[Rfam]
RNA sequence: UGACGGGGACCCGCACAAGCGGAGGAGUAUGUGGUUUAAUUCGAAGCAACGCGAAGAACCUUACCAACAUUUGACAUCCCAAUGACCGGUGUAGAGAUACACCUUCUCUUCGGAGCAUUGGUGACAGGUGGUGCAUGGUUGUCGUCAGCUCGUGUCGUGAGAUGUUGGGUUAAGUCCCGCAACGAGCGCAACCCUUGUUCUUAGUUACCAGCGAGUAAUGUCGGGGACUCUAAGGAGACUGCCUGUGUAAGCAGGAGGAAGGUGGGGAUGACGUCAAAUCAUCAUGCCCCUUAUAUGUUGGGCUACACACGUACUACAAUGGAUGGUACAAAGGGAAGCAAAACCGCGAGGUCAAGCCAACCCCAUAAAGCCAUUCUAAGUUCGGAUUGGAGUCUGCAACUCGACUCCAUGAAGUCGGAUUCGCUAGUAAUCGCAGAUCAGAAUGCUGCGGUGAAUACGUUCCCGGGUCUUGUACACACCGCCCGUCACACCACGAAAGUUUGUAACACCCAAAGUCGCAGGCCUAACCAGUUUACUGGAGGGAUGUGCCUAAGGUGGGAUGGAUGAUUGGGGUGAAGUCGUAACAAGG
Numbered sequence: 001u002g003a004c005g006g007g008g009a010c011c012c013g014c015a016c017a018a019g020c021g022g023a024g025g026a027g028u029a030u031g032u033g034g035u036u037u038a039a040u041u042c043g044a045a046g047c048a049a050c051g052c053g054a055a056g057a058a059c060c061u062u063a064c065c066a067a068c069a070u071u072u073g074a075c076a077u078c079c080c081a082a083u084g085a086c087c088g089g090u091g092u093a094g095a096g097a098u099a100c101a102c103c104u105u106c107u108c109u110u111c112g113g114a115g116c117a118u119u120g121g122u123g124a125c126a127g128g129u130g131g132u133g134c135a136u137g138g139u140u141g142u143c144g145u146c147a148g149c150u151c152g153u154g155u156c157g158u159g160a161g162a163u164g165u166u167g168g169g170u171u172a173a174g175u176c177c178c179g180c181a182a183c184g185a186g187c188g189c190a191a192c193c194c195u196u197g198u199u200c201u202u203a204g205u206u207a208c209c210a211g212c213g214a215g216u217a218a219u220g221u222c223g224g225g226g227a228c229u230c231u232a233a234g235g236a237g238a239c240u241g242c243c244u245g246u247g248u249a250a251g252c253a254g255g256a257g258g259a260a261g262g263u264g265g266g267g268a269u270g271a272c273g274u275c276a277a278a279u280c281a282u283c284a285u286g287c288c289c290c291u292u293a294u295a296u297g298u299u300g301g302g303c304u305a306c307a308c309a310c311g312u313a314c315u316a317c318a319a320u321g322g323a324u325g326g327u328a329c330a331a332a333g334g335g336a337a338g339c340a341a342a343a344c345c346g347c348g349a350g351g352u353c354a355a356g357c358c359a360a361c362c363c364c365a366u367a368a369a370g371c372c373a374u375u376c377u378a379a380g381u382u383c384g385g386a387u388u389g390g391a392g393u394c395u396g397c398a399a400c401u402c403g404a405c406u407c408c409a410u411g412a413a414g415u416c417g418g419a420u421u422c423g424c425u426a427g428u429a430a431u432c433g434c435a436g437a438u439c440a441g442a443a444u445g446c447u448g449c450g451g452u453g454a455a456u457a458c459g460u461u462c463c464c465g466g467g468u469c470u471u472g473u474a475c476a477c478a479c480c481g482c483c484c485g486u487c488a489c490a491c492c493a494c495g496a497a498a499g500u501u502u503g504u505a506a507c508a509c510c511c512a513a514a515g516u517c518g519c520a521g522g523c524c525u526a527a528c529c530a531g532u533u534u535a536c537u538g539g540a541g542g543g544a545u546g547u548g549c550c551u552a553a554g555g556u557g558g559g560a561u562g563g564a565u566g567a568u569u570g571g572g573g574u575g576a577a578g579u580c581g582u583a584a585c586a587a588g589g
Stems, first nucleotide, its partner, number of pairs: 001476002003473003007470007015460002019424005024317001026315008034306002040055004064301007077124002079121005088103006106115003127290002130288004136284002138279003141275001143273002148187006154163003166179004193267004198236007208225002212223003239258002242255005321376007333364003338357002343352003383414001388409007430452007479588001481585001484581002489575004494570003499565006507557004515550001517548004523543003528539004
The record is a 589-nucleotide part of an RNA from Culicoidibacter larvae, which matches "Bacterial small subunit ribosomal RNA" in Rfam. For this family Rfam cites "Crystal structure of the ribosome at 5.5 A resolution" (Yusupov et al., Science, 2001). A search with the family's covariance model found it, with a score of 1571 bits.